[Rfam]
RNA: ZMP/ZTP riboswitch aptamer (pfl RNA motif)
Organism: Streptomyces sp. QHH-9511
RNA sequence: AACACGCACGGCGACUGGCGUACGGGGAAGCGACCCCGGGGAAGCCGUGCGCGGCAGACAUACGAGGCGCCGCUCGCCUGGGCGCCGCGG
Numbered sequence: 001a002a003c004a005c006g007c008a009c010g011g012c013g014a015c016u017g018g019c020g021u022a023c024g025g026g027g028a029a030g031c032g033a034c035c036c037c038g039g040g041g042a043a044g045c046c047g048u049g050c051g052c053g054g055c056a057g058a059c060a061u062a063c064g065a066g067g068c069g070c071c072g073c074u075c076g077c078c079u080g081g082g083c084g085c086c087g088c089g090g
Stems, first nucleotide, its partner, number of pairs: 003053001005051008015041002017078004024037004067085005